[Rfam]
RNA sequence: CUUGACCGACCCGAGCCAGAGUGGCUCUCCGGAACGGUCCUGCCCGUAGGUGGCCAGCAGCGCCUGCGCCUC
Numbered sequence: 001c002u003u004g005a006c007c008g009a010c011c012c013g014a015g016c017c018a019g020a021g022u023g024g025c026u027c028u029c030c031g032g033a034a035c036g037g038u039c040c041u042g043c044c045c046g047u048a049g050g051u052g053g054c055c056a057g058c059a060g061c062g063c064c065u066g067c068g069c070c071u072c
Stems, first nucleotide, its partner, number of pairs: 014026004028068001030066001035062002040057003044053003
RNA: ASpks TB sRNA
Organism: Streptomyces sp. NL15-2K